[Rfam]
Rfam assigns this 34-nucleotide RNA from Aedes aegypti to the family "Iron response element I". The sequence is in the family's curated seed alignment.
Nucleotides: 034
Base pairs, nucleotide, nucleotide: 001034003032005031007030008029010028012027013026014025015024016023017021
Number, partner (000 for none) and nucleotide at each position: 001034a002000g003032g004000u005031g006000u007030u008029u009000u010028g011000c012027u013026u014025c015024a016023a017021c018000a019000u020000u021017g022000u023016u024015u025014g026013a027012a028010c029008g030007a031005c032003c033000g034001u

Gene Ontology term of the family: response to iron ion. NCBI's taxonomy places the organism under Eukaryota, Metazoa, Allotriocarida, Hexapoda, Stegomyia. The family's RNA type in Rfam is cis-regulatory element.